[Rfam]
small nucleolar RNA snoR114: an 89-nucleotide RNA from Gossypium raimondii.
It scores 53 bits against the family's covariance model.
On this family, see Chen and Wu, Nucleic Acids Res 2009: "Mining small RNA sequencing data: a new approach to identify small nucleolar RNAs in Arabidopsis".
Rfam links the family to the GO terms RNA processing and nucleolus.
By type it is a C/D-box small nucleolar RNA.
Pairs were carried over by alignment from the consensus structure, which was predicted with RNAalifold.
RNA sequence: GAGCUGUGAUGAUUUUCGCGCUCUUUCGAAGAUGAGGGUUCUUCGAAAUUAGCUGAUCUUCAGACGAUAAUAGCAGCGCUUCUGAGCUU
Numbered sequence: 001g002a003g004c005u006g007u008g009a010u011g012a013u014u015u016u017c018g019c020g021c022u023c024u025u026u027c028g029a030a031g032a033u034g035a036g037g038g039u040u041c042u043u044c045g046a047a048a049u050u051a052g053c054u055g056a057u058c059u060u061c062a063g064a065c066g067a068u069a070a071u072a073g074c075a076g077c078g079c080u081u082c083u084g085a086g087c088u089u
Base pairs, nucleotide, nucleotide: 001089002088003087004086